Rfam assigns this 115-nucleotide RNA from Caproiciproducens sp. NJN-50 to the family "STnc490 Hfq binding RNA". Rfam classes the family as a small RNA. The match comes from Rfam's covariance-model search (61 bits).
[Rfam]
RNA sequence: AACUCCCGGCUGUGCCGGGAGUUCCCAAAAAGCUUUAGCGGUGAUAAUAGUAAAAAACCUCCUUUUGAUAUAAUAAAAGCUGCGGUCUGCCAACUGCAACAAAACAUAUCAAAAG
Numbered sequence: 001a002a003c004u005c006c007c008g009g010c011u012g013u014g015c016c017g018g019g020a021g022u023u024c025c026c027a028a029a030a031a032g033c034u035u036u037a038g039c040g041g042u043g044a045u046a047a048u049a050g051u052a053a054a055a056a057a058c059c060u061c062c063u064u065u066u067g068a069u070a071u072a073a074u075a076a077a078a079g080c081u082g083c084g085g086u087c088u089g090c091c092a093a094c095u096g097c098a099a100c101a102a103a104a105c106a107u108a109u110c111a112a113a114a115g
Stems, first nucleotide, its partner, number of pairs: 001023010029042001032039002062115009071103001074102001079100001081098006